[Rfam]
RNA sequence: CACCCGACGGGGCAGGCGCAAGGCGCCGGCCGGAAUUGGAACAGGGGCUGGCCACGUGCCCGCCGGGGAAGCAAAGGGCCGAAUGUCGGGGGACGUUCGGCCCUUUUUUU
Numbered sequence: 001c002a003c004c005c006g007a008c009g010g011g012g013c014a015g016g017c018g019c020a021a022g023g024c025g026c027c028g029g030c031c032g033g034a035a036u037u038g039g040a041a042c043a044g045g046g047g048c049u050g051g052c053c054a055c056g057u058g059c060c061c062g063c064c065g066g067g068g069a070a071g072c073a074a075a076g077g078g079c080c081g082a083a084u085g086u087c088g089g090g091g092g093a094c095g096u097u098c099g100g101c102c103c104u105u106u107u108u109u110u
Stems, first nucleotide, its partner, number of pairs: 003067004008062004012057002015027005028053006036045002074105014